[Rfam]
RNA: mir-2774 microRNA precursor family
RNA sequence: ACAACAUUCGGACCUUCGGUCUACCGAGCAAAUAACACCCGCUCGGUAGAAGAUCUUUCCUUUCGACGU
Numbered sequence: 001a002c003a004a005c006a007u008u009c010g011g012a013c014c015u016u017c018g019g020u021c022u023a024c025c026g027a028g029c030a031a032a033u034a035a036c037a038c039c040c041g042c043u044c045g046g047u048a049g050a051a052g053a054u055c056u057u058u059c060c061u062u063u064c065g066a067c068g069u
Base pairs, nucleotide, nucleotide: 005065010060011059012058016053017052020050021049022048023047024046025045026044027043028042029041